[Rfam]
RNA: epsC RNA
RNA sequence: AAGGGAUGUCUCCUUCCUUUUAUCAAUGGAGGCACUCGGCUAUGCUGUGGGCGAAGAAGGCCUUAGACGUUUGUCGUCGAGAGUAUGGUGUGAGGUUGGGUUAGAUGCCCU
Numbered sequence: 001a002a003g004g005g006a007u008g009u010c011u012c013c014u015u016c017c018u019u020u021u022a023u024c025a026a027u028g029g030a031g032g033c034a035c036u037c038g039g040c041u042a043u044g045c046u047g048u049g050g051g052c053g054a055a056g057a058a059g060g061c062c063u064u065a066g067a068c069g070u071u072u073g074u075c076g077u078c079g080a081g082a083g084u085a086u087g088g089u090g091u092g093a094g095g096u097u098g099g100g101u102u103a104g105a106u107g108c109c110c111u
Stems, first nucleotide, its partner, number of pairs: 001019004007034007035094004039089008049063004066078004098110004